Rfam assigns this 278-nucleotide RNA sequence from Streptomyces filamentosus to the family "Streptomyces sRNA 4677". Rfam's curators write: Located in the intergenic region between anti-sigma factor SCO4677 gene and a putative regulatory protein gene SCO4676. scr4677 expression requires the SCO4677 activity and scr4677 sRNA itself seem to affect the levels of the SCO4676-associated transcripts. It is annotated as a small RNA. The literature on the family includes a 2014 paper in PLoS One by Hindra et al., "Complex intra-operonic dynamics mediated by a small RNA in Streptomyces coelicolor".
[Rfam]
RNA sequence: GACGCCGGUGCGGCGGCCGAUCUCCCAAAGAACGACCUGCGGAAGAAAGAACCGGACCAAACCCCACCUUCCCUCCCGUGGCAGGACGUGAUCACUCGGGUGGGUGAAUAUGCCAACUCGGCUGGCUUUCAGGUGGGUUGCCUGCCCUAGGCUCGCCAUGAGGCGAGACCGCGUUGGGGAAAGACGCGGGAUGGCCGCCCCCAAACAUGAGACGACCCCCGCCGGGCUGGAACCCCGGGCGGGGGUCUGACCACUUCGAGGAAGAAAGAGGCUUCCUG
Numbered sequence: 001g002a003c004g005c006c007g008g009u010g011c012g013g014c015g016g017c018c019g020a021u022c023u024c025c026c027a028a029a030g031a032a033c034g035a036c037c038u039g040c041g042g043a044a045g046a047a048a049g050a051a052c053c054g055g056a057c058c059a060a061a062c063c064c065c066a067c068c069u070u071c072c073c074u075c076c077c078g079u080g081g082c083a084g085g086a087c088g089u090g091a092u093c094a095c096u097c098g099g100g101u102g103g104g105u106g107a108a109u110a111u112g113c114c115a116a117c118u119c120g121g122c123u124g125g126c127u128u129u130c131a132g133g134u135g136g137g138u139u140g141c142c143u144g145c146c147c148u149a150g151g152c153u154c155g156c157c158a159u160g161a162g163g164c165g166a167g168a169c170c171g172c173g174u175u176g177g178g179g180a181a182a183g184a185c186g187c188g189g190g191a192u193g194g195c196c197g198c199c200c201c202c203a204a205a206c207a208u209g210a211g212a213c214g215a216c217c218c219c220c221g222c223c224g225g226g227c228u229g230g231a232a233c234c235c236c237g238g239g240c241g242g243g244g245g246u247c248u249g250a251c252c253a254c255u256u257c258g259a260g261g262a263a264g265a266a267a268g269a270g271g272c273u274u275c276c277u278g
Stems, first nucleotide, its partner, number of pairs: 007257001008254003016079001018078002092107006121187002123155003214247005220241003224235003260276005
Lineage of the source: Bacteria > Bacillati > Actinomycetes > Streptomycetaceae > Streptomyces. It scores 108 bits against the family's covariance model.